[Rfam]
RNA sequence: ACCUGAUACCGGGCCCCUCUGGCGAGAAUCUACGGCGCUCUCGUGAUGUCGGUAUCACCCG
Numbered sequence: 001a002c003c004u005g006a007u008a009c010c011g012g013g014c015c016c017c018u019c020u021g022g023c024g025a026g027a028a029u030c031u032a033c034g035g036c037g038c039u040c041u042c043g044u045g046a047u048g049u050c051g052g053u054a055u056c057a058c059c060c061g
Stems, first nucleotide, its partner, number of pairs: 006055007022044006029037001

The family of this 61-nucleotide RNA sequence from Rhizobium giardinii is "terC RNA". It scores 56 bits against the family's covariance model. Lineage of the source: Bacteria > Pseudomonadota > Alphaproteobacteria > Rhizobiaceae > Rhizobium. The family has 129 seed sequences and 1,112 matches in Rfam 15.1.